[Rfam]
A member of the RNA family "Small nucleolar RNA SNORD60" from Microtus ochrogaster, 83 nucleotides long. Rfam 15.1 lists 825 matches to the family in 373 species.
RNA sequence: AGCCGAUGAUGAGUUGCUUUAAUUUCUGACACCUCGUAUGAAAACUGCACGUGCAGUCUGAUUACAUUACAAGGCUGAGGCUU
Numbered sequence: 001a002g003c004c005g006a007u008g009a010u011g012a013g014u015u016g017c018u019u020u021a022a023u024u025u026c027u028g029a030c031a032c033c034u035c036g037u038a039u040g041a042a043a044a045c046u047g048c049a050c051g052u053g054c055a056g057u058c059u060g061a062u063u064a065c066a067u068u069a070c071a072a073g074g075c076u077g078a079g080g081c082u083u
Stems, first nucleotide, its partner, number of pairs: 001082004044057005
The base pairs follow the family's consensus structure, which was predicted with PFOLD. Rfam classes the family as a C/D-box small nucleolar RNA.